[Rfam]
RNA sequence: CUUCUAUGGUGAUGAAUUAUGAGUGAAGAGUAAUGUACAUGUCAAACUUCAGAGAUUUCCAUCGAUGAGAAGAUACACUUGACACUCUAAACAGAAA
Dot-bracket structure: .((((.(..............................................(((....)))...........................).)))).
RNA: Small nucleolar RNA R64/Z200 family
Organism: Eucalyptus grandis